Background:
This 114-nucleotide sequence from Acanthocheilonema viteae belongs to the Rfam family "Potassium channel RNA editing signal". Rfam describes the family as follows. This family represents a group of sequences related to the human potassium channel Kv1.1 hairpin element which directs the efficient modification of an adenosine to inosine by an adenosine deaminase acting on RNA (ADAR). Taxonomically the source falls in Acanthocheilonema (Eukaryota, Bilateria, Nematoda, Filarioidea).
RNA sequence: UUAAGGUAUGGAGAUUUAACACCUACUGGAGUUUACGGUAAGAUGGUGGGUGGCUUGUGCGCACUAAUUGGUGUACUGACACUUGCCCUACCUGUACCUAUUAUUGUAAGUAUU
Numbered sequence: 001u002u003a004a005g006g007u008a009u010g011g012a013g014a015u016u017u018a019a020c021a022c023c024u025a026c027u028g029g030a031g032u033u034u035a036c037g038g039u040a041a042g043a044u045g046g047u048g049g050g051u052g053g054c055u056u057g058u059g060c061g062c063a064c065u066a067a068u069u070g071g072u073g074u075a076c077u078g079a080c081a082c083u084u085g086c087c088c089u090a091c092c093u094g095u096a097c098c099u100a101u102u103a104u105u106g107u108a109a110g111u112a113u114u
Base pairs, nucleotide, nucleotide: 004111007108008107009106010105011104013102014101015100021095022094037077038076039075040074050062051061